[Rfam]
RNA sequence: GCCAUGGGGACCGCGAUCUCCCCACGAGGCGCAAGGCCCAAGCAUCGCGUUCCGGAAUGCACCCAGCGAAGGGGAGGAACGCAUAUG
Numbered sequence: 001g002c003c004a005u006g007g008g009g010a011c012c013g014c015g016a017u018c019u020c021c022c023c024a025c026g027a028g029g030c031g032c033a034a035g036g037c038c039c040a041a042g043c044a045u046c047g048c049g050u051u052c053c054g055g056a057a058u059g060c061a062c063c064c065a066g067c068g069a070a071g072g073g074g075a076g077g078a079a080c081g082c083a084u085a086u087g
Stems, first nucleotide, its partner, number of pairs: 005024006047082006
Dot-bracket structure: ....((((((........))))))......................((((((........................)))))).....
Shown here is an 87-nucleotide sequence from Thermohalobaculum xanthum, a member of the family "chrB-a RNA".
Pairs were carried over by alignment from the consensus structure, which is taken from published work.
The source organism's lineage runs through Bacteria, Pseudomonadota, Alphaproteobacteria, Rhodobacterales and Thermohalobaculum.